[Rfam]
RNA: Acido-Lenti-1 RNA
RNA sequence: CCCGUGGCUCACGCCCCGGGCUAUGUGCUGCCGCCGCUCCGCGGCU
Numbered sequence: 001c002c003c004g005u006g007g008c009u010c011a012c013g014c015c016c017c018g019g020g021c022u023a024u025g026u027g028c029u030g031c032c033g034c035c036g037c038u039c040c041g042c043g044g045c046u
Base pairs, nucleotide, nucleotide: 001020002019003018004017006015007014008013033045034044035043036042037041